[Rfam]
RNA: Actinobacteria sRNA Ms_IGR-5
RNA sequence: ACACGAGAAGGGAGGUGGUUCGGGACAUGAUUUCUUUCCGGACGCGUGAGGUGACUGCGGGCUAGCGCCCGUCGUCGCGCACAGCGCAGCGCCGGGGUCACCACCCGGGCCGUUUCGGCCCCGGGGCGAUCGCCGGCCCAAUCCCAGGCAGUCACCCGAUCCGUGGGCCGCCGAGUCGUCCGCUCGGCACCGCCGCGCCGCCAUCCGGCGGCGUGGCGGUAGCAGCCCACGGAUCGUCUGCU
Numbered sequence: 001a002c003a004c005g006a007g008a009a010g011g012g013a014g015g016u017g018g019u020u021c022g023g024g025a026c027a028u029g030a031u032u033u034c035u036u037u038c039c040g041g042a043c044g045c046g047u048g049a050g051g052u053g054a055c056u057g058c059g060g061g062c063u064a065g066c067g068c069c070c071g072u073c074g075u076c077g078c079g080c081a082c083a084g085c086g087c088a089g090c091g092c093c094g095g096g097g098u099c100a101c102c103a104c105c106c107g108g109g110c111c112g113u114u115u116c117g118g119c120c121c122c123g124g125g126g127c128g129a130u131c132g133c134c135g136g137c138c139c140a141a142u143c144c145c146a147g148g149c150a151g152u153c154a155c156c157c158g159a160u161c162c163g164u165g166g167g168c169c170g171c172c173g174a175g176u177c178g179u180c181c182g183c184u185c186g187g188c189a190c191c192g193c194c195g196c197g198c199c200g201c202c203a204u205c206c207g208g209c210g211g212c213g214u215g216g217c218g219g220u221a222g223c224a225g226c227c228c229a230c231g232g233a234u235c236g237u238c239u240g241c242u
Base pairs, nucleotide, nucleotide: 015058016057017056018055019054060138061137062136063135065133066132157236158235159234160233161232162231163230164229165228166227167226168225170188171187172186173185174184175183